[Rfam]
RNA sequence: CACAAGCGGUGAUGAUACUGACAUAUUGUCAUAGCCCUGAAAAGUUAAUGUGGGUUUUUAAGUCACUACCUCAUCUGAGCUUGUG
Numbered sequence: 001c002a003c004a005a006g007c008g009g010u011g012a013u014g015a016u017a018c019u020g021a022c023a024u025a026u027u028g029u030c031a032u033a034g035c036c037c038u039g040a041a042a043a044g045u046u047a048a049u050g051u052g053g054g055u056u057u058u059u060a061a062g063u064c065a066c067u068a069c070c071u072c073a074u075c076u077g078a079g080c081u082u083g084u085g
Base pairs, nucleotide, nucleotide: 002084003083004082005081006080007079
Dot-bracket structure: .((((((.......................................................................)))))).